Shown here is a 393-nucleotide part of an RNA, a member of the family "Bacterial large subunit ribosomal RNA". It scores 1166 bits against the family's covariance model. The family's consensus secondary structure is taken from published work.
RNA sequence: GAGAUAAUGCUUGUAAAGGAACUCGGCAAAUUAUCUUCAUAAGUUAGACGAUAUGAAGAACCAUCGAGUAAUUACUAAUUUAAAGUUAAAUACUCGUAAUUGGGUAAUUUUAACAAUAGAUUAUUAGUUCCGAUGGUGUCACAAAAUCGGAGGCCCCGACUGUUUACUUAAAACACAGCUUUCUGCAACGAUUAAUAUCUUUGUAUAGGAAGCGAAUUUUGCCCAAUGCCAUUAAUAUAAGGUUGAUAAGCUUUUUAGUAAAUUAUCGAUUGAAGUUCUGGUCAAUGGCGGUCUUAACCAUGAGGAUCCUAAGGUAGCAAAAUUAAUUGUCCAUUAAAUGUGGUCCCGACUGAAUAAAGUAACGAUGGUCUCACUGUCUCUACAAGCAUCUCA
Numbered sequence: 001g002a003g004a005u006a007a008u009g010c011u012u013g014u015a016a017a018g019g020a021a022c023u024c025g026g027c028a029a030a031u032u033a034u035c036u037u038c039a040u041a042a043g044u045u046a047g048a049c050g051a052u053a054u055g056a057a058g059a060a061c062c063a064u065c066g067a068g069u070a071a072u073u074a075c076u077a078a079u080u081u082a083a084a085g086u087u088a089a090a091u092a093c094u095c096g097u098a099a100u101u102g103g104g105u106a107a108u109u110u111u112a113a114c115a116a117u118a119g120a121u122u123a124u125u126a127g128u129u130c131c132g133a134u135g136g137u138g139u140c141a142c143a144a145a146a147u148c149g150g151a152g153g154c155c156c157c158g159a160c161u162g163u164u165u166a167c168u169u170a171a172a173a174c175a176c177a178g179c180u181u182u183c184u185g186c187a188a189c190g191a192u193u194a195a196u197a198u199c200u201u202u203g204u205a206u207a208g209g210a211a212g213c214g215a216a217u218u219u220u221g222c223c224c225a226a227u228g229c230c231a232u233u234a235a236u237a238u239a240a241g242g243u244u245g246a247u248a249a250g251c252u253u254u255u256u257a258g259u260a261a262a263u264u265a266u267c268g269a270u271u272g273a274a275g276u277u278c279u280g281g282u283c284a285a286u287g288g289c290g291g292u293c294u295u296a297a298c299c300a301u302g303a304g305g306a307u308c309c310u311a312a313g314g315u316a317g318c319a320a321a322a323u324u325a326a327u328u329g330u331c332c333a334u335u336a337a338a339u340g341u342g343g344u345c346c347c348g349a350c351u352g353a354a355u356a357a358a359g360u361a362a363c364g365a366u367g368g369u370c371u372c373a374c375u376g377u378c379u380c381u382a383c384a385a386g387c388a389u390c391u392c393a
Base pairs, nucleotide, nucleotide: 001392002391003390008388009387010386011385012384013383014382015381017379018378019377034059035058036057037056038055043049060137061136062135063134064133065132066131138142150372151371152370153369154368155367157364158363161175162174163173178213179212180211181210182209183208184207185206186203190199191198192197217358218357219356221289222288223287226286227285228282229281230280231279235277241271242270244268245267246266247265248264249263251258252257290308291307292306293305294304295303309313329345331343332342333341334340